[Rfam]
The record is a 134-nucleotide RNA from Phocoena sinus, which matches "Small nucleolar RNA SNORA71" in Rfam.
RNA sequence: UCAAAGAUAAUGAGUCCAUCGUGGGCUGCCCGUGCCCUGGUCGUUGAUAGUGCAGGGAGAGGAGUUGCUGAAAGCCUUUCCCCGUGUUUGGAGGGUUCACUCCUGUCCCUUGCAAACUCUGGAGCUUUCAUACG
Numbered sequence: 001u002c003a004a005a006g007a008u009a010a011u012g013a014g015u016c017c018a019u020c021g022u023g024g025g026c027u028g029c030c031c032g033u034g035c036c037c038u039g040g041u042c043g044u045u046g047a048u049a050g051u052g053c054a055g056g057g058a059g060a061g062g063a064g065u066u067g068c069u070g071a072a073a074g075c076c077u078u079u080c081c082c083c084g085u086g087u088u089u090g091g092a093g094g095g096u097u098c099a100c101u102c103c104u105g106u107c108c109c110u111u112g113c114a115a116a117c118u119c120u121g122g123a124g125c126u127u128u129c130a131u132a133c134g
Stems, first nucleotide, its partner, number of pairs: 002052002014045001016043001018041004023037004067131001069130007086117005091111005

It scores 96 bits against the family's covariance model. Lineage of the source: Eukaryota > Euteleostomi > Sarcopterygii > Cetacea > Phocoena. From the family's description: The members of this family belong to the H/ACA class of snoRNAs which bind a number of proteins (including dyskerin, Gar1p and Nop10p) to form snoRNP complexes. This class of snoRNAs are thought to guide the sites of modification of uridines to pseudouridines by forming direct base pairing interactions with substrate RNAs. This family includes U71 (SNORA71), ACA39 (SNORA39) and ACA60 (SNORA60). U71 and ACA60 are predicted to guide the pseudouridylation of U406 and U1004 in 18S rRNA respectively.